[Rfam]
RNA sequence: UGUUGGUCUCGCUUGUUUUGGGCAAGCAACUGAAUGAAGCUCCAAUUUAUUGGGGCUUUUUUGUUAUUUAACCGUUUGAAAAAGUUCAAACGGUUAAAAUAAAUUAGGGCUAUAUGCCCUUUUUUU
Number, nucleotide and partner (000 for none) at each position: 001u000002g000003u000004u000005g000006g000007u000008c000009u000010c000011g000012c000013u000014u000015g000016u000017u000018u000019u000020g000021g000022g000023c000024a000025a000026g000027c000028a000029a000030c000031u000032g000033a000034a000035u000036g060037a058038a057039g056040c055041u054042c053043c052044a051045a000046u000047u000048u000049a000050u000051u044052g043053g042054g041055g040056c039057u038058u037059u000060u036061u000062u000063g000064u000065u000066a000067u000068u000069u000070a000071a000072c000073c000074g000075u000076u000077u000078g000079a000080a000081a000082a000083a000084g000085u000086u000087c000088a000089a000090a000091c000092g000093g000094u000095u000096a000097a000098a000099a000100u000101a000102a000103a000104u000105u000106a000107g119108g118109g117110c116111u000112a000113u000114a000115u000116g110117c109118c108119c107120u000121u000122u000123u000124u000125u000126u000
Rfam assigns this 126-nucleotide sequence from Psychromonas sp. psych-6C06 to the family "Gammaprotebacteria rimP leader".
A search with the family's covariance model found it, with a score of 49 bits.
On this family, see Naville and Gautheret, Genome Biol 2010: "Premature terminator analysis sheds light on a hidden world of bacterial transcriptional attenuation".
The family's consensus secondary structure is taken from published work.